[Rfam]
RNA sequence: UGUGCAAAGCAUAUGAUGAGAAAGCACUGAAACUGAUUCCAUGUGAAGUGUAUUCAGUCCAACGCUGAGCUUUGUGUU
Numbered sequence: 001u002g003u004g005c006a007a008a009g010c011a012u013a014u015g016a017u018g019a020g021a022a023a024g025c026a027c028u029g030a031a032a033c034u035g036a037u038u039c040c041a042u043g044u045g046a047a048g049u050g051u052a053u054u055c056a057g058u059c060c061a062a063c064g065c066u067g068a069g070c071u072u073u074g075u076g077u078u
Stems, first nucleotide, its partner, number of pairs: 002077009
Small nucleolar RNA SNORD69: a 78-nucleotide sequence from Podilymbus podiceps. The literature on the family includes a 2001 paper in EMBO J by Huttenhofer et al., "RNomics: an experimental approach that identifies 201 candidates for novel, small, non-messenger RNAs in mouse". snoRNA HBII-210 belongs to the C/D family of snoRNAs. It is the human orthologue of the mouse MBII-210 and is predicted to guide the 2'O-ribose methylation of large 28S rRNA on residue G4464. Rfam links the family to the GO terms nucleolus and RNA processing. Lineage of the source: Eukaryota > Deuterostomia > Sarcopterygii > Neoaves > Podilymbus. Pairs were carried over by alignment from the consensus structure.